A member of the RNA family "Streptomyces RNA 3920" from Streptomyces sp. SAJ15, 125 nucleotides long. It scores 92 bits against the family's covariance model. For this family Rfam cites "Deep sequencing-based identification of small non-coding RNAs in Streptomyces coelicolor" (Vockenhuber et al., RNA Biol, 2011). The family's RNA type in Rfam is small RNA. Rfam's curators write: Identified by deep sequencing of transcriptome at the end of exponential growth phase. Sequencing size consistent with northern blot size. Streptomyces specific.

[Rfam]
RNA sequence: GAUAGGGCCAUGUCGCUACGGUGAUUGGACACUGACGCAGAGUCAACUAGCCUUGUUCGAGCGGCUCUAGAAGCUGAGAGCCGGGGCGUCUCAAGCCACGAGGGGGGAGGCUUGAGACGCCCGCC
Dot-bracket structure: ((((......))))((((..(((......)))((((.....))))..))))......(.................)........(((((((((((((.(......)..)))))))))))))....